This 93-nucleotide RNA from Oryctolagus cuniculus belongs to the Rfam family "mir-326 microRNA precursor family". Gene Ontology terms of the family: miRNA-mediated post-transcriptional gene silencing and RISC complex. The family's consensus secondary structure was predicted with RNAalifold. The match comes from Rfam's covariance-model search (99 bits). The organism belongs to Oryctolagus, within Eukaryota. The family has 13 seed sequences and 129 matches in Rfam 15.1.
[Rfam]
RNA sequence: CUGCCGUCUGUUGGGCCGGGGGCAGGGCCUUUGUGAAGGCGGGUUGUGCUCGGAUCGCCUCUGGGCCCUUCCUCCAGCCCCGAGACGGAUUCA
Numbered sequence: 001c002u003g004c005c006g007u008c009u010g011u012u013g014g015g016c017c018g019g020g021g022g023c024a025g026g027g028c029c030u031u032u033g034u035g036a037a038g039g040c041g042g043g044u045u046g047u048g049c050u051c052g053g054a055u056c057g058c059c060u061c062u063g064g065g066c067c068c069u070u071c072c073u074c075c076a077g078c079c080c081c082g083a084g085a086c087g088g089a090u091u092c093a
Base pairs, nucleotide, nucleotide: 004088005087006086007085008084009083013080014079015078016077018075019074020073021072022071024069025068026067027066028065029064030063037060038059039058040057041056042055